[Rfam]
RNA sequence: GUCGCCCGGUGUUUUCCUCCCAUUGCGCCGGGCGAUGUUCCCCUCUGAAGGUUAUGACCUUCAUGCUUGGCCGGGCCGCUUUCGCGCCCGGCCUUU
Numbered sequence: 001g002u003c004g005c006c007c008g009g010u011g012u013u014u015u016c017c018u019c020c021c022a023u024u025g026c027g028c029c030g031g032g033c034g035a036u037g038u039u040c041c042c043c044u045c046u047g048a049a050g051g052u053u054a055u056g057a058c059c060u061u062c063a064u065g066c067u068u069g070g071c072c073g074g075g076c077c078g079c080u081u082u083c084g085c086g087c088c089c090g091g092c093c094u095u096u
Base pairs, nucleotide, nucleotide: 001036002035003034004033005032007030008029009028010027011026046063047062048061049060050059051058052057071091072090073089074088075087076086077084078083